[Rfam]
Shown here is a 297-nucleotide sequence from Fasciola gigantica, a member of the family "Metazoan signal recognition particle RNA". The family has 91 seed sequences and 383,523 matches in Rfam 15.1. It scores 232 bits against the family's covariance model. The family's RNA type in Rfam is non-coding RNA gene. The literature on the family includes a 2002 paper in Curr Opin Struct Biol by Wild et al., "Towards the structure of the mammalian signal recognition particle". About the family: The signal recognition particle (SRP) is a universally conserved ribonucleoprotein. It is involved in the co-translational targeting of proteins to membranes. The eukaryotic SRP consists of a 300-nucleotide 7S RNA and six proteins: SRPs 72, 68, 54, 19, 14, and 9. Archaeal SRP consists of a 7S RNA and homologues of the eukaryotic SRP19 and SRP54 proteins. Eukaryotic and archaeal 7S RNAs have very similar secondary structures, as represented by this family. Eight helical elements fold into the Alu and S domains, separated by a long linker region. The Alu domain is thought to mediate the peptide chain elongation retardation function of the SRP. The universally conserved helix which interacts with the SRP54 M domain mediates signal sequence recognition. In eukaryotes and archaea, the SRP19-helix 6 complex is thought to be involved in SRP assembly and stabilises helix 8 for SRP54 binding. The Signal Recognition Particle Database (SRPDB) provides compilations of SRP components, with phylogenetic data and structural illustrations. Many sequences below the threshold for this family are clearly closely related, but are most likely to be SRP RNA derived pseudogenes. The human genome in particular is known to contain a large amount of SRP RNA related sequence, including Alu repeats. While the threshold of this family is set high so as to minimise the number of hits to such regions, it is likely that some remain.
RNA sequence: GCUGGGCGUGGUGGCGUGCGCCUGUAAUCCAGCUACUUGGAGGCUUGGUGUCGGAAUCUCGUGGGGCCGGGAGUCCUGGUGUUGGUUUGUGCAUGUUGAUCGGGCGUCCACGCUAAGCACGGCGCCGAUAUGGAUGGCCUGUCGGAAGGCGGACUGUCCAGGUCGUCUAAGGAGGGGCGAACCGGCCCAGGGGAGAAAUCCAGCAGGCAAAAGUCCCCGCGUGGUGCGGUAGCGGGAUAGCGUCUGUGAAUGGCGACCCAACAACAGCCCGGCCGGCACGUGGAGACCGCCGCCUUU
Numbered sequence: 001g002c003u004g005g006g007c008g009u010g011g012u013g014g015c016g017u018g019c020g021c022c023u024g025u026a027a028u029c030c031a032g033c034u035a036c037u038u039g040g041a042g043g044c045u046u047g048g049u050g051u052c053g054g055a056a057u058c059u060c061g062u063g064g065g066g067c068c069g070g071g072a073g074u075c076c077u078g079g080u081g082u083u084g085g086u087u088u089g090u091g092c093a094u095g096u097u098g099a100u101c102g103g104g105c106g107u108c109c110a111c112g113c114u115a116a117g118c119a120c121g122g123c124g125c126c127g128a129u130a131u132g133g134a135u136g137g138c139c140u141g142u143c144g145g146a147a148g149g150c151g152g153a154c155u156g157u158c159c160a161g162g163u164c165g166u167c168u169a170a171g172g173a174g175g176g177g178c179g180a181a182c183c184g185g186c187c188c189a190g191g192g193g194a195g196a197a198a199u200c201c202a203g204c205a206g207g208c209a210a211a212a213g214u215c216c217c218c219g220c221g222u223g224g225u226g227c228g229g230u231a232g233c234g235g236g237a238u239a240g241c242g243u244c245u246g247u248g249a250a251u252g253g254c255g256a257c258c259c260a261a262c263a264a265c266a267g268c269c270c271g272g273c274c275g276g277c278a279c280g281u282g283g284a285g286a287c288c289g290c291c292g293c294c295u296u297u
Stems, first nucleotide, its partner, number of pairs: 001044003004023007028041003047294004052289003057284003065274007076267003080263006087256002092252003096248001101246007108236002111234005117227004122222004126165004131160007139152005166172002174217005185208003192201003